About this RNA
This 38-nucleotide RNA from Enterocloster bolteae belongs to the Rfam family "Selenocysteine insertion sequence 4". The base pairs follow the family's consensus structure, which was predicted with PFOLD. The family's RNA type in Rfam is cis-regulatory element. It scores 47 bits against the family's covariance model. The family has 24 seed sequences and 436 matches in Rfam 15.1. A reference for the family is Graentzdoerffer et al. (2001), "Molecular analysis of the grd operon coding for genes of the glycine reductase and of the thioredoxin system from Clostridium sticklandii", Arch Microbiol.

[Rfam]
RNA sequence: GGAACCUGUACUCGUUGCGGCGCAACGAUUGUCAGGGA
Numbered sequence: 001g002g003a004a005c006c007u008g009u010a011c012u013c014g015u016u017g018c019g020g021c022g023c024a025a026c027g028a029u030u031g032u033c034a035g036g037g038a
Base pairs, nucleotide, nucleotide: 005031013027014026015025016024017023018022